[Rfam]
RNA: Eukaryotic small subunit ribosomal RNA, nucleotides 1 to 550
RNA sequence: AACCUGGUUGAUCCUGCCAGUAGUCAUAUGCUUGUCUCAAAGACUAAGCCAUGCACGUCUAAGUACAAACUAAAUGAUGGUGAAACUGCAAAUGGCUCAUUACAACGGUUAUGAUGUACCCGGGAGUUCCGAUGGAUAUUUCCAGUAACACUAGAACUAAUACAUGUCCCUGCGUUUAUUAGUUUCACACAGUCCGUCGCUGAGUCAUGGUAAACAGUUGAUCGACUCGACGUCCCGGAACAGUUUCCGCCCCAUCAGCUUCGAUGGUUGGGUAUUGGCCUACCAUUGCAACAACGGGUAACGAGGAAUUAGGGUUUGAUUUCGGAGAGGGAGCCUGAGAAACGGCUACCACAUCUACGGAUGGCAGCAGGCGCGCAAAUUACCCAAUGCAGACACUGUGAGGUAGUGACGAGAAAUAAUAAAGCGGGACUUCUGUUUCGCUAUUAUAAUGAGUAACAACCAAAGGUCGUUACGAUUAGCAACUGAUGGGAAAGUCUGGUGCCAGCAGCCGCGGUAAUACCAGCGUCAGUAGCAUAUAUUAAAAUUGUUG
Numbered sequence: 001a002a003c004c005u006g007g008u009u010g011a012u013c014c015u016g017c018c019a020g021u022a023g024u025c026a027u028a029u030g031c032u033u034g035u036c037u038c039a040a041a042g043a044c045u046a047a048g049c050c051a052u053g054c055a056c057g058u059c060u061a062a063g064u065a066c067a068a069a070c071u072a073a074a075u076g077a078u079g080g081u082g083a084a085a086c087u088g089c090a091a092a093u094g095g096c097u098c099a100u101u102a103c104a105a106c107g108g109u110u111a112u113g114a115u116g117u118a119c120c121c122g123g124g125a126g127u128u129c130c131g132a133u134g135g136a137u138a139u140u141u142c143c144a145g146u147a148a149c150a151c152u153a154g155a156a157c158u159a160a161u162a163c164a165u166g167u168c169c170c171u172g173c174g175u176u177u178a179u180u181a182g183u184u185u186c187a188c189a190c191a192g193u194c195c196g197u198c199g200c201u202g203a204g205u206c207a208u209g210g211u212a213a214a215c216a217g218u219u220g221a222u223c224g225a226c227u228c229g230a231c232g233u234c235c236c237g238g239a240a241c242a243g244u245u246u247c248c249g250c251c252c253c254a255u256c257a258g259c260u261u262c263g264a265u266g267g268u269u270g271g272g273u274a275u276u277g278g279c280c281u282a283c284c285a286u287u288g289c290a291a292c293a294a295c296g297g298g299u300a301a302c303g304a305g306g307a308a309u310u311a312g313g314g315u316u317u318g319a320u321u322u323c324g325g326a327g328a329g330g331g332a333g334c335c336u337g338a339g340a341a342a343c344g345g346c347u348a349c350c351a352c353a354u355c356u357a358c359g360g361a362u363g364g365c366a367g368c369a370g371g372c373g374c375g376c377a378a379a380u381u382a383c384c385c386a387a388u389g390c391a392g393a394c395a396c397u398g399u400g401a402g403g404u405a406g407u408g409a410c411g412a413g414a415a416a417u418a419a420u421a422a423a424g425c426g427g428g429a430c431u432u433c434u435g436u437u438u439c440g441c442u443a444u445u446a447u448a449a450u451g452a453g454u455a456a457c458a459a460c461c462a463a464a465g466g467u468c469g470u471u472a473c474g475a476u477u478a479g480c481a482a483c484u485g486a487u488g489g490g491a492a493a494g495u496c497u498g499g500u501g502c503c504a505g506c507a508g509c510c511g512c513g514g515u516a517a518u519a520c521c522a523g524c525g526u527c528a529g530u531a532g533c534a535u536a537u538a539u540u541a542a543a544a545u546u547g548u549u550g
Stems, first nucleotide, its partner, number of pairs: 004020005022540003026537007035414004041407001042374001048372003052369003057089002062087003069081002096327003106249003111244002115242002121237004132165003140156003144152002176213006189201001192198001222230003251298003258289002264286005270280002302324004306317004329350002332347003352363004380405001382404003388400005420446003423442008453473002455470001457469001459467001483529006496523004505512002